Rfam assigns this 85-nucleotide RNA sequence from Caldanaerobacter subterraneus to the family "Glycine riboswitch aptamer".
The match comes from Rfam's covariance-model search (50 bits).
The source organism's lineage runs through Bacteria, Bacillati, Bacillota, Caldanaerobacter subterraneus and Caldanaerobacter subterraneus subsp. tengcongensis.
From the family's description: This family represents the bacterial glycine riboswitch.
Clan: Glycine riboswitch clan.
RNA sequence: CCUCUGGAAAGUCUCGUAAAGAGCACCGAAGGAGCAAUACAUAUGGAAGGCCAUAUGUAGAAGCUCUCAGGUAGAAAAACAGAGG
Numbered sequence: 001c002c003u004c005u006g007g008a009a010a011g012u013c014u015c016g017u018a019a020a021g022a023g024c025a026c027c028g029a030a031g032g033a034g035c036a037a038u039a040c041a042u043a044u045g046g047a048a049g050g051c052c053a054u055a056u057g058u059a060g061a062a063g064c065u066c067u068c069a070g071g072u073a074g075a076a077a078a079a080c081a082g083a084g085g
Stems, first nucleotide, its partner, number of pairs: 001085006013023003025072003028068002032066003038059009